RNA sequence: AGCCACUGGCAGCAAAUAGGGUCCAGUUGCAUAAAGCCCCGAAUUUCGGGGUUUUUUGUUAUUUGACAACAGAACUACUGGGCUAAUUAGCCCUUUUUUU
Numbered sequence: 001a002g003c004c005a006c007u008g009g010c011a012g013c014a015a016a017u018a019g020g021g022u023c024c025a026g027u028u029g030c031a032u033a034a035a036g037c038c039c040c041g042a043a044u045u046u047c048g049g050g051g052u053u054u055u056u057u058g059u060u061a062u063u064u065g066a067c068a069a070c071a072g073a074a075c076u077a078c079u080g081g082g083c084u085a086a087u088u089a090g091c092c093c094u095u096u097u098u099u100u
Base pairs, nucleotide, nucleotide: 033055034054035053036052037051038050039049040048041047080093081092082091083090
RNA: Gammaprotebacteria rimP leader